Source information: Rfam assigns this 61-nucleotide sequence from Leucobacter sp. UCD-THU to the family "msiK RNA". The family's consensus secondary structure is taken from published work. Rfam 15.1 lists 1,374 matches to the family in 1,364 species. NCBI's taxonomy places the organism under Bacteria, Bacillati, Actinomycetota, Microbacteriaceae, Leucobacter. Rfam classes the family as a cis-regulatory element.
RNA sequence: CGACGGCUUCGAUUUCACAACGGAUCGUCCGGCACGUACCUGCCGGUGAAACGAGAGGACA
Number, nucleotide and partner (000 for none) at each position: 001c000002g000003a000004c000005g000006g000007c000008u000009u000010c053011g052012a000013u051014u050015u049016c048017a047018c000019a000020a000021c000022g000023g000024a000025u000026c000027g000028u000029c046030c045031g044032g043033c042034a041035c000036g000037u000038a000039c000040c000041u034042g033043c032044c031045g030046g029047u017048g016049a015050a014051a013052c011053g010054a000055g000056a000057g000058g000059a000060c000061a000